[Rfam]
RNA sequence: AGAUCCCGCGCGGGAGAGUGAGGUGGCGACACCUCCGCCGAAGGCGCAACCGGCCCCCGGAAACGCUCAGGUACCGAGGGCCGCGUGGGGAAG
Number, nucleotide and partner (000 for none) at each position: 001a000002g000003a000004u000005c000006c088007c087008g086009c085010g084011c083012g082013g081014g000015a000016g000017a000018g000019u000020g035021a034022g033023g032024u000025g000026g000027c000028g000029a000030c000031a000032c023033c022034u021035c020036c000037g072038c071039c070040g068041a067042a000043g000044g066045c065046g064047c000048a000049a000050c060051c059052g000053g000054c000055c000056c000057c000058c000059g051060g050061a000062a000063a000064c046065g045066c044067u041068c040069a000070g039071g038072u037073a000074c000075c000076g000077a000078g000079g000080g000081c013082c012083g011084c010085g009086u008087g007088g006089g000090g000091a000092a000093g000
The record is a 93-nucleotide RNA from Neoroseomonas lacus, which matches "Glycine riboswitch aptamer" in Rfam. The base pairs follow the family's consensus structure. Taxonomically the source falls in Neoroseomonas (Bacteria, Pseudomonadota, Acetobacterales, Acetobacteraceae). About the family: This family represents the bacterial glycine riboswitch.